[Rfam]
RNA: Small nucleolar RNA SNORD19
Organism: Varanus komodoensis
RNA sequence: GAGAAAUGAGGAUAUUUACAAUGUCUUACUUUUACACUGAAGACAUCAGAUCCAACUCUGAUCUUGCUGUAAGC
Numbered sequence: 001g002a003g004a005a006a007u008g009a010g011g012a013u014a015u016u017u018a019c020a021a022u023g024u025c026u027u028a029c030u031u032u033u034a035c036a037c038u039g040a041a042g043a044c045a046u047c048a049g050a051u052c053c054a055a056c057u058c059u060g061a062u063c064u065u066g067c068u069g070u071a072a073g074c
Base pairs, nucleotide, nucleotide: 001065002064003063004062